[Rfam]
Nucleotides: 063
Stems, first nucleotide, its partner, number of pairs: 001063005012026004028051003031047002035045002
Number, partner (000 for none) and nucleotide at each position: 001063c002062u003061c004060u005059g006000g007000a008000g009000a010000g011000a012026g013025g014024c015023c016000c017000g018000g019000g020000a021000c022000g023015g024014g025013u026012c027000c028051g029050c030049c031047g032046a033000a034000g035045g036044g037000a038000u039000a040000g041000c042000g043000a044036u045035c046032u047031c048000a049030g050029g051028c052000a053000g054000a055000a056000g057000a058000a059005c060004a061003g062002a063001g

Description:
This 63-nucleotide sequence from Pseudooceanicola marinus belongs to the Rfam family "Glycine riboswitch aptamer". It scores 36 bits against the family's covariance model. The pairing is the family consensus, mapped onto this sequence. From the family's description: This family represents the bacterial glycine riboswitch.